[Rfam]
RNA sequence: AUGUUAUAAAGAAAGGCAGAGGGAUUAGACCCGAUGAAGCCUUAGCAACCCUUCGGUAAACGAAGAAGGUGCUGCAUUCUACCGCGCUUGGCGUGGAAAGAUAACUU
Numbered sequence: 001a002u003g004u005u006a007u008a009a010a011g012a013a014a015g016g017c018a019g020a021g022g023g024a025u026u027a028g029a030c031c032c033g034a035u036g037a038a039g040c041c042u043u044a045g046c047a048a049c050c051c052u053u054c055g056g057u058a059a060a061c062g063a064a065g066a067a068g069g070u071g072c073u074g075c076a077u078u079c080u081a082c083c084g085c086g087c088u089u090g091g092c093g094u095g096g097a098a099a100g101a102u103a104a105c106u107u
Stems, first nucleotide, its partner, number of pairs: 001107001003105005013043005021032003026081004044073004049069002051065004077099001082096006